Source information: This 309-nucleotide RNA sequence from Tetracentron sinense belongs to the Rfam family "Plant signal recognition particle RNA". The literature on the family includes a 2003 paper in Nucleic Acids Res by Rosenblad et al., "SRPDB: Signal Recognition Particle Database". Pairs were carried over by alignment from the consensus structure, which is taken from published work.
[Rfam]
RNA sequence: GCUGAGCUAUGUAGUGGUAGCUUGUGACCCAAGCGGGGGCAUUAAGAUGGUUGAACGCUGGCUCGACCCUGACUGGUGGGGCCUGUUUCGGAGCGAAUUCCUGACUUGCCCGUUCCAAGUCAAGAUGUUGGUCUAUGUGGGUCUGGUGAAGGCUCGAACCACAUGGUCCCUAGAGUGGAGGGCACUGCGCUAGGCUGGUUUCACAGAGCAGCGAAUACCUCCCGCUCUUGACAGUGGAAGGAUAACGAGUUGGUGCUCCUCAGACCCUAAAUUGCCCGACGAGCCGUACCCAGUUGAACAUCCAUCUUU
Numbered sequence: 001g002c003u004g005a006g007c008u009a010u011g012u013a014g015u016g017g018u019a020g021c022u023u024g025u026g027a028c029c030c031a032a033g034c035g036g037g038g039g040c041a042u043u044a045a046g047a048u049g050g051u052u053g054a055a056c057g058c059u060g061g062c063u064c065g066a067c068c069c070u071g072a073c074u075g076g077u078g079g080g081g082c083c084u085g086u087u088u089c090g091g092a093g094c095g096a097a098u099u100c101c102u103g104a105c106u107u108g109c110c111c112g113u114u115c116c117a118a119g120u121c122a123a124g125a126u127g128u129u130g131g132u133c134u135a136u137g138u139g140g141g142u143c144u145g146g147u148g149a150a151g152g153c154u155c156g157a158a159c160c161a162c163a164u165g166g167u168c169c170c171u172a173g174a175g176u177g178g179a180g181g182g183c184a185c186u187g188c189g190c191u192a193g194g195c196u197g198g199u200u201u202c203a204c205a206g207a208g209c210a211g212c213g214a215a216u217a218c219c220u221c222c223c224g225c226u227c228u229u230g231a232c233a234g235u236g237g238a239a240g241g242a243u244a245a246c247g248a249g250u251u252g253g254u255g256c257u258c259c260u261c262a263g264a265c266c267c268u269a270a271a272u273u274g275c276c277c278g279a280c281g282a283g284c285c286g287u288a289c290c291c292a293g294u295u296g297a298a299c300a301u302c303c304a305u306c307u308u309u
Base pairs, nucleotide, nucleotide: 001040002039003038004023005022006021007020008019009018010017028037029036030035044308045307046306047305048304049303050302052300053299056296057295058293059292060291061289064286065285068283070281071280073278075276076275077274078273079267080266081265083263084262085261091258092257093256096254101253102252103251104250105249106248107247108246110241111240113239114238115237116236117235119232120231121230122229123228124227125226127225128224130169131168133166134165135164136163137162138161139160140159142157143156145154146153147152170175177222178221179220180219181218186215188213189212190211195206196205197204

Clan: SRP clan.